RNA sequence: GGCUGGAUUACUGGGCGAAUACUCCUAUGGCAGAUGUUUUUAGCAUUGCUUGAAUUGCAAGCAAAAUGCUUCUCUGCCUCUGCCAAAGGAGAUUUGCCCCGCAAUUCAUCC
Number, nucleotide and partner (000 for none) at each position: 001g000002g000003c000004u000005g107006g106007a105008u104009u103010a000011c101012u000013g099014g098015g097016c096017g095018a094019a093020u000021a000022c091023u090024c089025c088026u000027a000028u085029g084030g083031c082032a081033g080034a079035u000036g077037u000038u000039u000040u000041u000042a000043g000044c000045a000046u000047u000048g000049c000050u000051u000052g000053a000054a000055u000056u000057g000058c000059a000060a000061g000062c000063a000064a000065a000066a000067u000068g000069c000070u000071u000072c000073u000074c000075u000076g000077c036078c000079u034080c033081u032082g031083c030084c029085a028086a000087a000088g025089g024090a023091g022092a000093u019094u018095u017096g016097c015098c014099c013100c000101g011102c000103a009104a008105u007106u006107c005108a000109u000110c000111c000
RNA: mir-399 microRNA precursor family